[Rfam]
RNA: Bacterial RNase P class A
RNA sequence: GCAGUGUCUCGGUACUGUCGCUGGCAAUAUAUUGCAAGAGGAAAGUCCGGGCAGCACAGAGUAUUCCACUUCUGAAACAGAAGCUAUUGGUGACAGUAGGAAUAAGUAGAAGAGAACAACCGCCACUUCGGUGGUAAGGGUGAGAAGGCAGGGUAAGAGCCUACCAGCUGUUGGGUGAUCAACAGGCUGUACUUUCUGGAAGCUGCAAGUCCAUGUAAACCGUAGUCAAAGAGUUACUCGCUCAAUAGCAUAUACUAACUACGGAGGGUAGGAUGCUAGAGAUGUAGGGCGACCUGCAUAGUAGAUAAAUGACAGUAGCUGUUUUUACAGUUUAACAGAACCCGGCUUACAGGGACACUGCUUUC
Numbered sequence: 001g002c003a004g005u006g007u008c009u010c011g012g013u014a015c016u017g018u019c020g021c022u023g024g025c026a027a028u029a030u031a032u033u034g035c036a037a038g039a040g041g042a043a044a045g046u047c048c049g050g051g052c053a054g055c056a057c058a059g060a061g062u063a064u065u066c067c068a069c070u071u072c073u074g075a076a077a078c079a080g081a082a083g084c085u086a087u088u089g090g091u092g093a094c095a096g097u098a099g100g101a102a103u104a105a106g107u108a109g110a111a112g113a114g115a116a117c118a119a120c121c122g123c124c125a126c127u128u129c130g131g132u133g134g135u136a137a138g139g140g141u142g143a144g145a146a147g148g149c150a151g152g153g154u155a156a157g158a159g160c161c162u163a164c165c166a167g168c169u170g171u172u173g174g175g176u177g178a179u180c181a182a183c184a185g186g187c188u189g190u191a192c193u194u195u196c197u198g199g200a201a202g203c204u205g206c207a208a209g210u211c212c213a214u215g216u217a218a219a220c221c222g223u224a225g226u227c228a229a230a231g232a233g234u235u236a237c238u239c240g241c242u243c244a245a246u247a248g249c250a251u252a253u254a255c256u257a258a259c260u261a262c263g264g265a266g267g268g269u270a271g272g273a274u275g276c277u278a279g280a281g282a283u284g285u286a287g288g289g290c291g292a293c294c295u296g297c298a299u300a301g302u303a304g305a306u307a308a309a310u311g312a313c314a315g316u317a318g319c320u321g322u323u324u325u326u327a328c329a330g331u332u333u334a335a336c337a338g339a340a341c342c343c344g345g346c347u348u349a350c351a352g353g354g355a356c357a358c359u360g361c362u363u364u365c
Stems, first nucleotide, its partner, number of pairs: 001361010011350001013317007021038002024035004043348003047345005052205004064201005069083005084099001086097004100196002105194001106192003120139002122135005147165002150162003167187001168185007209274004220264007282299007